[Rfam]
Nucleotides: 172
Stems, first nucleotide, its partner, number of pairs: 003139001005136001008132002014125004019120002023116001025115008034106003039101004044096002049091005055083005061077004141164004147158004
Number, partner (000 for none) and nucleotide at each position: 001000c002000a003139c004000u005136g006000c007000c008132u009131g010000u011000c012000g013000c014125u015124a016123c017122u018000a019120c020119c021000a022000a023116u024000u025115g026114g027113a028112u029111g030110g031109u032108u033000u034106a035105g036104u037000g038000a039101g040100g041099c042098c043000c044096u045095c046000g047000g048000a049091u050090c051089a052088g053087c054000c055083c056082c057081a058080c059079c060000g061077g062076g063075g064074u065000c066000g067000g068000c069000c070000c071000a072000c073000a074064g075063c076062u077061c078000u079059g080058g081057u082056g083055g084000a085000g086000u087053g088052c089051u090050g091049a092000g093000a094000a095045g096044a097000c098042g099041g100040u101039c102000g103000a104036a105035c106034u107000u108032g109031a110030c111029u112028a113027u114026c115025u116023a117000g118000a119020g120019g121000a122017a123016g124015u125014a126000a127000a128000a129000a130000u131009u132008g133000u134000a135000a136005c137000a138000a139003g140000g141164u142163u143162u144161c145000c146000a147158u148157a149156g150155g151000u152000g153000a154000a155150c156149c157148u158147g159000c160000a161144g162143a163142a164141g165000a166000a167000u168000c169000a170000u171000u172000a
The record is a 172-nucleotide part of an RNA from Tupaia belangeri, which matches "Eukaryotic small subunit ribosomal RNA" in Rfam. Gene Ontology terms of the family: ribosome and structural constituent of ribosome.